Rhodo-rpoB RNA: a 94-nucleotide sequence.
[Rfam]
RNA sequence: GUUUCGGGCGAGGGAUCUUUGGGAGGUCUCUCUGGUAUGGAAACGAAAACUGUCCCGAUCAGGCGCUGAUCCGGAGGCCCAACCCGGCGUCAGC
Numbered sequence: 001g002u003u004u005c006g007g008g009c010g011a012g013g014g015a016u017c018u019u020u021g022g023g024a025g026g027u028c029u030c031u032c033u034g035g036u037a038u039g040g041a042a043a044c045g046a047a048a049a050c051u052g053u054c055c056c057g058a059u060c061a062g063g064c065g066c067u068g069a070u071c072c073g074g075a076g077g078c079c080c081a082a083c084c085c086g087g088c089g090u091c092a093g094c
Stems, first nucleotide, its partner, number of pairs: 001044005010032008065094004071087004

Record summary
The family's consensus secondary structure is taken from published work.